[Rfam]
Shown here is a 68-nucleotide RNA sequence from Macaca mulatta, a member of the family "Small nucleolar RNA SNORD77". On this family, see Tycowski et al., Curr Biol 2004: "Guide RNAs with 5' caps and novel box C/D snoRNA-like domains for modification of snRNAs in metazoa". U77 belongs to the C/D family of snoRNAs. It is predicted to guide 2'O-ribose methylation of large 28S rRNA subunit at position A1521. The C/D snoRNAs U44, U47, U74, U75, U76, U78, U79, U80 and U81 share the same host gene as U77 (non-coding).
RNA sequence: AUACUAUGAUGGUUGCAUAGUUCAGCAGAUUGAAUCAUGAAGAAAUGUACUGUGUGUCUGAUGUGUCU
Number, nucleotide and partner (000 for none) at each position: 001a066002u065003a064004c063005u000006a038007u037008g036009a035010u034011g000012g000013u028014u027015g026016c025017a000018u000019a000020g000021u000022u000023c000024a000025g016026c015027a014028g013029a000030u000031u000032g000033a000034a010035u009036c008037a007038u006039g000040a000041a000042g000043a055044a000045a053046u052047g051048u000049a000050c000051u047052g046053u045054g000055u043056g000057u000058c000059u000060g000061a000062u000063g004064u003065g002066u001067c000068u000
Source information:
The base pairs follow the family's consensus structure, which was predicted with RNAalifold.